[Rfam]
RNA sequence: AUGGAUCUUCGGGGUAGGUGAAAUUCCUAACCGGCGGUGAAAGUCCUUCUAUCUUUGAAUGAACUUAAGCCCGCGACUCGCCAUUUUGAAUAAGAAAUGGUGACUGACUUGGUGAGAUUCCAAGGCCGACGGUAAAGUCCGGAUGGGAGAAGAUCAAG
Numbered sequence: 001a002u003g004g005a006u007c008u009u010c011g012g013g014g015u016a017g018g019u020g021a022a023a024u025u026c027c028u029a030a031c032c033g034g035c036g037g038u039g040a041a042a043g044u045c046c047u048u049c050u051a052u053c054u055u056u057g058a059a060u061g062a063a064c065u066u067a068a069g070c071c072c073g074c075g076a077c078u079c080g081c082c083a084u085u086u087u088g089a090a091u092a093a094g095a096a097a098u099g100g101u102g103a104c105u106g107a108c109u110u111g112g113u114g115a116g117a118u119u120c121c122a123a124g125g126c127c128g129a130c131g132g133u134a135a136a137g138u139c140c141g142g143a144u145g146g147g148a149g150a151a152g153a154u155c156a157a158g
Base pairs, nucleotide, nucleotide: 004155005154006153007152008151009150010149016028017027018026030138031137032128033127034074035073036072037071069126070125078103079102080101081100082099108124109123110122111121112120130141131140132139
This 158-nucleotide RNA sequence from Paenibacillus sp. IHBB 10380 belongs to the Rfam family "FMN riboswitch aptamer (RFN element)". The match comes from Rfam's covariance-model search (108 bits). NCBI's taxonomy places the organism under Bacteria, Bacillati, Bacilli, Paenibacillaceae, Paenibacillus.